[Rfam]
RNA sequence: AUUGCGGCGGUCUCUAAUUUGCUUGGUGCAGGCCGGGACUUUCACGGCGCCGCCGCCGCUCGACGGCCGGCUCAGCUUGAUAGAUGCGUUUGCGCGUCGUCCUCGGCGAGUUUAGGUCCCGCCCUGUAUCAAAUGAAUCGGAGGCCGCCCGGUAU
Numbered sequence: 001a002u003u004g005c006g007g008c009g010g011u012c013u014c015u016a017a018u019u020u021g022c023u024u025g026g027u028g029c030a031g032g033c034c035g036g037g038a039c040u041u042u043c044a045c046g047g048c049g050c051c052g053c054c055g056c057c058g059c060u061c062g063a064c065g066g067c068c069g070g071c072u073c074a075g076c077u078u079g080a081u082a083g084a085u086g087c088g089u090u091u092g093c094g095c096g097u098c099g100u101c102c103u104c105g106g107c108g109a110g111u112u113u114a115g116g117u118c119c120c121g122c123c124c125u126g127u128a129u130c131a132a133a134u135g136a137a138u139c140g141g142a143g144g145c146c147g148c149c150c151g152g153u154a155u
Base pairs, nucleotide, nucleotide: 013142014141017138018137019136020135023132024131025130026129027128028127029126030125031124032123034121035120036119037118038117040115041114

The family of this 155-nucleotide RNA from Ipomoea nil is "MIR168 microRNA precursor family". Lineage of the source: Eukaryota > Magnoliopsida > Solanales > Ipomoeeae > Ipomoea.